[Rfam]
The record is a 215-nucleotide RNA from Ameyamaea chiangmaiensis, which matches "permuted transfer-messenger RNA" in Rfam. Rfam classes the family as a non-coding RNA gene. Bacterial tmRNA, also known as 10Sa RNA or SsrA, is named for its dual tRNA and mRNA-like properties. Pairs were carried over by alignment from the consensus structure, which is taken from published work.

RNA sequence: GGCGAUAAACGGUAUGUGGAAUAAUCGUUGCGGACCCGGGGGCAGUGCCCGGCGUCUCCACCAGUCAAGCCGCGUCAGCGGGGCGGCCAUGCGGGGACGAAACAGGCUCGACGCGCGUGGUAAAGACAUAUCUUUUGCCCGGCAUUGUACCACCGUCAUCGGGCUAAAUCACAAGUGCCAAUGAUAACUCUGAGGUGCUCGCUGUCGCUGCAUAA
Numbered sequence: 001g002g003c004g005a006u007a008a009a010c011g012g013u014a015u016g017u018g019g020a021a022u023a024a025u026c027g028u029u030g031c032g033g034a035c036c037c038g039g040g041g042g043c044a045g046u047g048c049c050c051g052g053c054g055u056c057u058c059c060a061c062c063a064g065u066c067a068a069g070c071c072g073c074g075u076c077a078g079c080g081g082g083g084c085g086g087c088c089a090u091g092c093g094g095g096g097a098c099g100a101a102a103c104a105g106g107c108u109c110g111a112c113g114c115g116c117g118u119g120g121u122a123a124a125g126a127c128a129u130a131u132c133u134u135u136u137g138c139c140c141g142g143c144a145u146u147g148u149a150c151c152a153c154c155g156u157c158a159u160c161g162g163g164c165u166a167a168a169u170c171a172c173a174a175g176u177g178c179c180a181a182u183g184a185u186a187a188c189u190c191u192g193a194g195g196u197g198c199u200c201g202c203u204g205u206c207g208c209u210g211c212a213u214a215a
Base pairs, nucleotide, nucleotide: 001139002138003137004136005135014129015128016127017126026117027116028115030114031113032112036052037051038050039049040048053099054098055097056096057095058094059093140155141154142153